[Rfam]
Shown here is a 147-nucleotide sequence from Nonomuraea glycinis, a member of the family "c-di-AMP riboswitch aptamer (ydaO/yuaA leader)".
The match comes from Rfam's covariance-model search (86 bits).
RNA sequence: AGUGCGCGGCCGCCUAAUCCGCUCGCGCGGAGCCGGGGACCCACUCUUUUCCGGGGUGAAUCGGAUGCCAGCCCACCAGCUGCGUCCGUAGGGCACUUUCCAGCCCGAACCCGUCAGCUAACCCGGUAGGCGGCAUGGAAGCAAGGA
Numbered sequence: 001a002g003u004g005c006g007c008g009g010c011c012g013c014c015u016a017a018u019c020c021g022c023u024c025g026c027g028c029g030g031a032g033c034c035g036g037g038g039a040c041c042c043a044c045u046c047u048u049u050u051c052c053g054g055g056g057u058g059a060a061u062c063g064g065a066u067g068c069c070a071g072c073c074c075a076c077c078a079g080c081u082g083c084g085u086c087c088g089u090a091g092g093g094c095a096c097u098u099u100c101c102a103g104c105c106c107g108a109a110c111c112c113g114u115c116a117g118c119u120a121a122c123c124c125g126g127u128a129g130g131c132g133g134c135a136u137g138g139a140a141g142c143a144a145g146g147a
Stems, first nucleotide, its partner, number of pairs: 011132004018031003032127006042053001054112003062088007091106004